Rfam assigns this 129-nucleotide RNA from Pseudonocardia halophobica to the family "ALIL pseudoknot". The family's RNA type in Rfam is cis-regulatory element. It scores 74 bits against the family's covariance model.

RNA sequence: GGCUUUCUUCGCGGCGGAGCUCGACCGCCCCGCGAGCAAGUGAUCGCCUAUAUCGACGGGCAUCGCAGCGAGUUCGGGGUCGAGCCGAUCUGCCGAGUGCUGGCCGCGGCCGGCGUGGCGAUCGCCCCG
Numbered sequence: 001g002g003c004u005u006u007c008u009u010c011g012c013g014g015c016g017g018a019g020c021u022c023g024a025c026c027g028c029c030c031c032g033c034g035a036g037c038a039a040g041u042g043a044u045c046g047c048c049u050a051u052a053u054c055g056a057c058g059g060g061c062a063u064c065g066c067a068g069c070g071a072g073u074u075c076g077g078g079g080u081c082g083a084g085c086c087g088a089u090c091u092g093c094c095g096a097g098u099g100c101u102g103g104c105c106g107c108g109g110c111c112g113g114c115g116u117g118g119c120g121a122u123c124g125c126c127c128c129g
Base pairs, nucleotide, nucleotide: 013029014028015027016026017025075129076128077127078126079125086124087123089121090120092119093118094117095116